[Rfam]
RNA: Small nucleolar RNA SNORD116
RNA sequence: GGAUUGACGAUGACUUUAAAAAAAAAAAAUCUCAUUGAAAUCUGAAAAAAAUGAGUGACCAAACCACUUCUGUGAGCUGAGGUCC
Numbered sequence: 001g002g003a004u005u006g007a008c009g010a011u012g013a014c015u016u017u018a019a020a021a022a023a024a025a026a027a028a029a030u031c032u033c034a035u036u037g038a039a040a041u042c043u044g045a046a047a048a049a050a051a052u053g054a055g056u057g058a059c060c061a062a063a064c065c066a067c068u069u070c071u072g073u074g075a076g077c078u079g080a081g082g083u084c085c
Stems, first nucleotide, its partner, number of pairs: 001085005029056002032053001035048002